The family of this 86-nucleotide RNA from Crocodylus porosus is "Selenocysteine transfer RNA". For this family Rfam cites "Eukaryotic selenocysteine tRNA has the 9/4 secondary structure" (Mizutani and Goto, FEBS Lett, 2000).
RNA sequence: GCCCAGGUGAUCCUCAGUGGUCUGGGGUGCGGGCUUCAAACCUGUAGCUGUGUAGCAACAGAGUGGUUCAAUUCCACCUCCUGGGU
Numbered sequence: 001g002c003c004c005a006g007g008u009g010a011u012c013c014u015c016a017g018u019g020g021u022c023u024g025g026g027g028u029g030c031g032g033g034c035u036u037c038a039a040a041c042c043u044g045u046a047g048c049u050g051u052g053u054a055g056c057a058a059c060a061g062a063g064u065g066g067u068u069c070a071a072u073u074c075c076a077c078c079u080c081c082u083g084g085g086u
Base pairs, nucleotide, nucleotide: 001086002085003084004083005082006081007080009078012027013026014025015024016023017022028046029045030044031043032042033041048061049060050059051058063077064076065075066074